The record is a 115-nucleotide RNA from Occultella aeris, which matches "SAM (S-adenosyl methionine) riboswitch aptamer" in Rfam.
Rfam's curators write: SAM-IV is a mRNA element that regulates gene expression via direct sensing of S-adenosylmethionine (SAM or AdoMet). SAM-IV riboswitches share conserved nucleotide positions with the previously described SAM-I riboswitches sequence analysis and molecular recognition experiments suggest that SAM-I and SAM-IV riboswitches share similar ligand binding sites, but have different scaffolds.
The match comes from Rfam's covariance-model search (109 bits).
NCBI's taxonomy places the organism under Bacteria, Actinomycetes, Micrococcales, Ruaniaceae, Occultella.
RNA sequence: GGUCAUGAGUGCCAGCGCGUAGCCCCGGCUUGCUGGCCGGCAACCCUCCAACCGCGGUGGGGUGCCCCGGGUGACGACCGGGUCGGUGCCGCGGUGGCGCCGGCAAGCGCGGGCC
Dot-bracket structure: ((((....(.((((((....((......)).)))))))(((..(((.((......))..))).))).........))))..((((((((((...))))))))))...........